[Rfam]
RNA sequence: UCGAGCGGCACGCCGAACCCUGCCACCGCUCGCAGGUCCGUACGACUCGCCGGCAGGGGCGGGGGACCCAAAUCGUGGGUACCGGAGACGGUGCCCUUGGGGUGAAGCCGCGGCGGACGACGUGACGCUCUGCACGACCCACGUGCAGGACGGUGACGGCGGCCGACGCGGCCGGGUGUUCUCCCACCCGAACCCGACAGCUCACCUCGUAGGCGACAGGAGAGGCCAG
Numbered sequence: 001u002c003g004a005g006c007g008g009c010a011c012g013c014c015g016a017a018c019c020c021u022g023c024c025a026c027c028g029c030u031c032g033c034a035g036g037u038c039c040g041u042a043c044g045a046c047u048c049g050c051c052g053g054c055a056g057g058g059g060c061g062g063g064g065g066a067c068c069c070a071a072a073u074c075g076u077g078g079g080u081a082c083c084g085g086a087g088a089c090g091g092u093g094c095c096c097u098u099g100g101g102g103u104g105a106a107g108c109c110g111c112g113g114c115g116g117a118c119g120a121c122g123u124g125a126c127g128c129u130c131u132g133c134a135c136g137a138c139c140c141a142c143g144u145g146c147a148g149g150a151c152g153g154u155g156a157c158g159g160c161g162g163c164c165g166a167c168g169c170g171g172c173c174g175g176g177u178g179u180u181c182u183c184c185c186a187c188c189c190g191a192a193c194c195c196g197a198c199a200g201c202u203c204a205c206c207u208c209g210u211a212g213g214c215g216a217c218a219g220g221a222g223a224g225g226c227c228a229g
Stems, first nucleotide, its partner, number of pairs: 011215004018058007059210006069099002100195003108171004174189004

Description
Rfam assigns this 229-nucleotide RNA sequence from Cellulomonas sp. SLBN-39 to the family "c-di-AMP riboswitch aptamer (ydaO/yuaA leader)".